RNA sequence: UAUUAGGUUGGUGCAAAAGUAAUUGUGGUUUUUGUCAUUAAAAGUAACAGCAAAAACCACAAUUACUUUUGUGCCAAUCUAAUA
Number, nucleotide and partner (000 for none) at each position: 001u084002a083003u082004u081005a080006g079007g078008u077009u076010g075011g074012u073013g072014c071015a070016a069017a068018a067019g066020u065021a064022a063023u062024u061025g060026u059027g058028g057029u056030u055031u054032u053033u052034g051035u050036c000037a000038u047039u046040a045041a000042a000043a000044g000045u040046a039047a038048c000049a000050g035051c034052a033053a032054a031055a030056a029057c028058c027059a026060c025061a024062a023063u022064u021065a020066c019067u018068u017069u016070u015071g014072u013073g012074c011075c010076a009077a008078u007079c006080u005081a004082a003083u002084a001